RNA sequence: UUCUUAUCCAGAGAGGUGGAGGGACUGACCCUAAGAAGCCUCGGCAACCAGCAAGAUAACUUGCCCGGUGCCAAUUUCAGAGGAAGCCUGCUUCCAAAGAUGAGAA
Dot-bracket structure: ((((((((....(((((...(((.[[[[)))......)))))((((.((.((((......))))..))))))...(]]]].(((((....)))))..)))))))))
The family of this 106-nucleotide RNA from Radiobacillus deserti is "SAM riboswitch aptamer (S box leader)". It scores 83 bits against the family's covariance model. Pairs were carried over by alignment from the consensus structure, which is taken from published work.